[Rfam]
RNA sequence: CGGUGCUUGCCUCACCCGACAUCGAGUGAGCGGAUUAAUCAGAUUCGCCUACUUAUACGGGGCUCCUUCACGGCGCUCCGCCCCCGUCCCGGAGGU
Numbered sequence: 001c002g003g004u005g006c007u008u009g010c011c012u013c014a015c016c017c018g019a020c021a022u023c024g025a026g027u028g029a030g031c032g033g034a035u036u037a038a039u040c041a042g043a044u045u046c047g048c049c050u051a052c053u054u055a056u057a058c059g060g061g062g063c064u065c066c067u068u069c070a071c072g073g074c075g076c077u078c079c080g081c082c083c084c085c086g087u088c089c090c091g092g093a094g095g096u
Stems, first nucleotide, its partner, number of pairs: 025053004031047006059081001061079001062077001064075001066073002